[Rfam]
RNA sequence: UCACUGAUGAAGAUGAGAUGGUCGGUUACAUCUUGAAUGGUUUAGAUUUCGAUUACAAACCUAUCGUAUCUUCCAUUCUUGGUCGCACUAACCCCAUCAUCAUGAGUGAUCUAUAUGCUCAAUUGUUGUCCUAUGAGA
Number, nucleotide and partner (000 for none) at each position: 001u000002c000003a000004c137005u136006g000007a134008u133009g000010a000011a000012g000013a000014u000015g000016a000017g000018a000019u000020g000021g000022u000023c000024g000025g000026u000027u000028a000029c000030a000031u000032c000033u000034u000035g000036a000037a000038u000039g000040g000041u000042u000043u000044a000045g000046a000047u000048u000049u000050c000051g000052a000053u000054u000055a000056c000057a000058a000059a000060c000061c000062u000063a000064u000065c000066g000067u000068a000069u000070c000071u000072u000073c000074c000075a000076u000077u000078c000079u000080u000081g000082g000083u000084c000085g000086c000087a107088c106089u105090a000091a103092c000093c000094c000095c000096a000097u000098c000099a000100u000101c000102a000103u091104g000105a089106g088107u087108g000109a000110u000111c000112u000113a000114u000115a000116u000117g000118c000119u000120c000121a000122a000123u000124u000125g000126u000127u000128g000129u000130c000131c000132u000133a008134u007135g000136a005137g004138a000
Shown here is a 138-nucleotide RNA sequence from Panicum virgatum, a member of the family "Small nucleolar RNA Z247". NCBI's taxonomy places the organism under Eukaryota, Spermatophyta, commelinids, Panicoideae, Panicum sect. Hiantes. A search with the family's covariance model found it, with a score of 65 bits. On this family, see Chen et al., Nucleic Acids Res 2003: "The high diversity of snoRNAs in plants: identification and comparative study of 120 snoRNA genes from Oryza sativa". It is annotated as a C/D-box small nucleolar RNA.